[Rfam]
RNA sequence: CCUUCAGGGGAGUAGUCGCCUGCUCUGAGCAUUCAGGGCGGGGUGUACAUCAACAUAUUUGGUCCACAUGACCAUGGUGUACACGGCUCGGCAGGUUGCCUGUGACCUGUCAGCUUGGCGAGACC
Numbered sequence: 001c002c003u004u005c006a007g008g009g010g011a012g013u014a015g016u017c018g019c020c021u022g023c024u025c026u027g028a029g030c031a032u033u034c035a036g037g038g039c040g041g042g043g044u045g046u047a048c049a050u051c052a053a054c055a056u057a058u059u060u061g062g063u064c065c066a067c068a069u070g071a072c073c074a075u076g077g078u079g080u081a082c083a084c085g086g087c088u089c090g091g092c093a094g095g096u097u098g099c100c101u102g103u104g105a106c107c108u109g110u111c112a113g114c115u116u117g118g119c120g121a122g123a124c125c
Stems, first nucleotide, its partner, number of pairs: 020041008043084010060074005090125001